[Rfam]
RNA sequence: GCUGCGCCAACCUCUGUUUUUCUUCGCAUUCUUUUUUACCUUCCCCUGACUGGGAGGCGAUUCGUCACACGAUAAAGAAUGCGAAGACGAACAAAAAAAGCCUCCCCCGCGGAGGCUUUUUUUAU
Dot-bracket structure: ...............((((.((((((((((((((.((....((((......))))((((...))))....)).)))))))))))))).))))....(((((((((.....)))))))))......